This 76-nucleotide sequence from Lathyrus oleraceus belongs to the Rfam family "Small nucleolar RNA Z105". Lineage of the source: Eukaryota > Mesangiospermae > eudicotyledons > Gunneridae > Lathyrus. For this family Rfam cites "The high diversity of snoRNAs in plants: identification and comparative study of 120 snoRNA genes from Oryza sativa" (Chen et al., Nucleic Acids Res, 2003). The match comes from Rfam's covariance-model search (50 bits).
RNA sequence: AUGGCAUGAUGAUGAUAUCAGUGAACCUUUCCAUAUGAUUAAACACAGGAUUAAAACAUCCUCCUACUCAUUCUGA
Numbered sequence: 001a002u003g004g005c006a007u008g009a010u011g012a013u014g015a016u017a018u019c020a021g022u023g024a025a026c027c028u029u030u031c032c033a034u035a036u037g038a039u040u041a042a043a044c045a046c047a048g049g050a051u052u053a054a055a056a057c058a059u060c061c062u063c064c065u066a067c068u069c070a071u072u073c074u075g076a
Base pairs, nucleotide, nucleotide: 006071007070008069009068033052036047